The family of this 68-nucleotide sequence from Salvator merianae is "mir-302 microRNA precursor family".
RNA sequence: GCUCUACUUGAACAUGGAGGCACUUGCUGGCUACUUUCAAAGUAAGUGCGUCUAUGUUUUAGUUGAGC
Numbered sequence: 001g002c003u004c005u006a007c008u009u010g011a012a013c014a015u016g017g018a019g020g021c022a023c024u025u026g027c028u029g030g031c032u033a034c035u036u037u038c039a040a041a042g043u044a045a046g047u048g049c050g051u052c053u054a055u056g057u058u059u060u061a062g063u064u065g066a067g068c
Base pairs, nucleotide, nucleotide: 001068002067003066006063007062008061010059011058012057013056014055015054016053017052018051020049021048022047023046024045025044026043027042028041
NCBI's taxonomy places the organism under Eukaryota, Craniata, Sarcopterygii, Squamata, Salvator. The base pairs follow the family's consensus structure, which was predicted with RNAalifold. It scores 61 bits against the family's covariance model.